[Rfam]
RNA sequence: CGACCUCAGAUCGGACGAGACCACCCGCUGAAUUUAAGCAUAUCACUAAGCGGAGGAAAAGAAACUAACCAGGAUUCCCUCAGUAGCGGCGAGUGAAGCGGGAAGAGCCCAUCGCCGAAUCCCAGCGGCCCUUAGGCUCUGGGACCUGUGGCGUGAGGCGGCUUCGGGCGCGCGAGUCCACGACGCCGAGGUCCUCCUGAUCGGGGCACCUUACCCAGAGCGGGUGUCAGGCCCGUUCGGGCGUCGGGUCUCAAGGGCCUGGAGCCACCAAGAGUCGGGUAGUUUUGGAAUGCUGCCCAAAGAAGGGAGGUGAACUCCUUCCAAGGCUAAAUACUGGCACGAGACCGAUAGCAGACAAGUACCGUGAGGGAAAGUUGAAAAGAACUCUGAAGAGAGAGUUCAAGAGGACGUGAAACCGCCAAGAAGCAAA
Numbered sequence: 001c002g003a004c005c006u007c008a009g010a011u012c013g014g015a016c017g018a019g020a021c022c023a024c025c026c027g028c029u030g031a032a033u034u035u036a037a038g039c040a041u042a043u044c045a046c047u048a049a050g051c052g053g054a055g056g057a058a059a060a061g062a063a064a065c066u067a068a069c070c071a072g073g074a075u076u077c078c079c080u081c082a083g084u085a086g087c088g089g090c091g092a093g094u095g096a097a098g099c100g101g102g103a104a105g106a107g108c109c110c111a112u113c114g115c116c117g118a119a120u121c122c123c124a125g126c127g128g129c130c131c132u133u134a135g136g137c138u139c140u141g142g143g144a145c146c147u148g149u150g151g152c153g154u155g156a157g158g159c160g161g162c163u164u165c166g167g168g169c170g171c172g173c174g175a176g177u178c179c180a181c182g183a184c185g186c187c188g189a190g191g192u193c194c195u196c197c198u199g200a201u202c203g204g205g206g207c208a209c210c211u212u213a214c215c216c217a218g219a220g221c222g223g224g225u226g227u228c229a230g231g232c233c234c235g236u237u238c239g240g241g242c243g244u245c246g247g248g249u250c251u252c253a254a255g256g257g258c259c260u261g262g263a264g265c266c267a268c269c270a271a272g273a274g275u276c277g278g279g280u281a282g283u284u285u286u287g288g289a290a291u292g293c294u295g296c297c298c299a300a301a302g303a304a305g306g307g308a309g310g311u312g313a314a315c316u317c318c319u320u321c322c323a324a325g326g327c328u329a330a331a332u333a334c335u336g337g338c339a340c341g342a343g344a345c346c347g348a349u350a351g352c353a354g355a356c357a358a359g360u361a362c363c364g365u366g367a368g369g370g371a372a373a374g375u376u377g378a379a380a381a382g383a384a385c386u387c388u389g390a391a392g393a394g395a396g397a398g399u400u401c402a403a404g405a406g407g408a409c410g411u412g413a414a415a416c417c418g419c420c421a422a423g424a425a426g427c428a429a430a
Stems, first nucleotide, its partner, number of pairs: 024055001025053005035042002065072002076103004086094002106328004113153005119147001120144006127137001158268001160266004165262001167260002174252003178248002181246007191207001193206004216220001223233002277298007305322005362369002385396004
RNA: Eukaryotic large subunit ribosomal RNA, nucleotides 1 to 430
Organism: Strongylocentrotus purpuratus